[Rfam]
RNA sequence: GCCGGGUACCGCGACUGGCGCAUUCGAGGUGGAAGUAACCACCGGGAAGCAACCAAGCCCCGCACCGCGCGCCUGGGUGUUGGGC
Numbered sequence: 001g002c003c004g005g006g007u008a009c010c011g012c013g014a015c016u017g018g019c020g021c022a023u024u025c026g027a028g029g030u031g032g033a034a035g036u037a038a039c040c041a042c043c044g045g046g047a048a049g050c051a052a053c054c055a056a057g058c059c060c061c062g063c064a065c066c067g068c069g070c071g072c073c074u075g076g077g078u079g080u081u082g083g084g085c
Stems, first nucleotide, its partner, number of pairs: 003057001006054001011050002015046002017073005029042004062080005